The record is a 96-nucleotide sequence from Ramlibacter agri, which matches "TPP riboswitch aptamer (THI element)" in Rfam. The match comes from Rfam's covariance-model search (56 bits). Its family is annotated with thiamine pyrophosphate binding in the Gene Ontology.
Nucleotides: 096
Stems, first nucleotide, its partner, number of pairs: 006084005011047004016041001017032005052077003058071004
Number, partner (000 for none) and nucleotide at each position: 001000g002000c003000c004000c005000u006084u007083g008082c009081u010080c011047c012046g013045g014044g015000g016041u017032g018031u019030a020029c021028g022000c023000g024000c025000c026000a027000g028021c029020g030019u031018g032017c033000u034000g035000a036000g037000a038000u039000c040000c041016a042000g043000a044014c045013c046012c047011g048000u049000g050000a051000a052077c053076u054075u055000g056000a057000a058071c059070c060069g061068g062000c063000u064000c065000a066000u067000a068061c069060c070059g071058g072000c073000g074000g075054a076053a077052g078000a079000a080010g081009a082008g083007c084006a085000g086000u087000c088000u089000c090000c091000c092000u093000g094000a095000c096000c